[Rfam]
RNA sequence: AGGUAAUGUCUACUGUACCUUUAUCACUGUAGGCACUCGGUCACGCUGUGGGUCGCAAUGACCUUAGACAUUAUUGUCAAGGGUGUGAUGUGAGGGGGGGUUGGAUGCCCC
Number, nucleotide and partner (000 for none) at each position: 001a020002g019003g018004u017005a000006a000007u035008g034009u033010c032011u031012a030013c029014u000015g000016u000017a004018c003019c002020u001021u000022u000023a000024u000025c000026a000027c000028u000029g013030u012031a011032g010033g009034c008035a007036c094037u093038c092039g091040g089041u088042c087043a086044c085045g084046c083047u082048g000049u000050g064051g063052g062053u061054c060055g059056c000057a000058a000059u055060g054061a053062c052063c051064u050065u000066a000067g078068a077069c076070a075071u000072u000073a000074u000075u070076g069077u068078c067079a000080a000081g000082g047083g046084u045085g044086u043087g042088a041089u040090g000091u039092g038093a037094g036095g000096g000097g111098g110099g109100g108101u107102u000103g000104g000105a000106u000107g101108c100109c099110c098111c097
RNA: epsC RNA
Organism: Paenibacillus nasutitermitis